[Rfam]
The record is a 68-nucleotide sequence from Prosthecochloris aestuarii, which matches "Chlorobi-1 RNA" in Rfam. By type it is a small RNA. Lineage of the source: Bacteria > Pseudomonadati > Chlorobiota > Chlorobiaceae > Prosthecochloris aestuarii.

RNA sequence: AUCAUGCCUCACGCCCGUGAGGUAGAGUAGGAGGAAUGGGGGCCUCCUGCUCACUGUUUAAAGCGGCC
Numbered sequence: 001a002u003c004a005u006g007c008c009u010c011a012c013g014c015c016c017g018u019g020a021g022g023u024a025g026a027g028u029a030g031g032a033g034g035a036a037u038g039g040g041g042g043c044c045u046c047c048u049g050c051u052c053a054c055u056g057u058u059u060a061a062a063g064c065g066g067c068c
Stems, first nucleotide, its partner, number of pairs: 005024008025052010